Rfam assigns this 201-nucleotide RNA from Medicago truncatula to the family "MIR2619 microRNA precursor family".
Pairs were carried over by alignment from the consensus structure, which was predicted with RNAalifold.
The match comes from Rfam's covariance-model search (172 bits).
[Rfam]
RNA sequence: AAACAACCCCCUAUGUAUUGGAUCUUUGGCAAUUUUGGCCCCCAAGACCACUUUUGACUUUGUCUUCGCUGACGUGGCACCCCCUAACUAAUUACAUGUGGCACCUCACUUAUGGAAAAUGGGCGCCACGUCAGCGAAGACUAAGUCAAAAGUGGUCUUGGGGGCCAAAACUGCCAAAGUCCAAUACAUAAGGGACUGUUU
Numbered sequence: 001a002a003a004c005a006a007c008c009c010c011c012u013a014u015g016u017a018u019u020g021g022a023u024c025u026u027u028g029g030c031a032a033u034u035u036u037g038g039c040c041c042c043c044a045a046g047a048c049c050a051c052u053u054u055u056g057a058c059u060u061u062g063u064c065u066u067c068g069c070u071g072a073c074g075u076g077g078c079a080c081c082c083c084c085u086a087a088c089u090a091a092u093u094a095c096a097u098g099u100g101g102c103a104c105c106u107c108a109c110u111u112a113u114g115g116a117a118a119a120u121g122g123g124c125g126c127c128a129c130g131u132c133a134g135c136g137a138a139g140a141c142u143a144a145g146u147c148a149a150a151a152g153u154g155g156u157c158u159u160g161g162g163g164g165c166c167a168a169a170a171c172u173g174c175c176a177a178a179g180u181c182c183a184a185u186a187c188a189u190a191a192g193g194g195a196c197u198g199u200u201u
Stems, first nucleotide, its partner, number of pairs: 001201002004198002008194001012190011024179008033170013072131002075128004080123003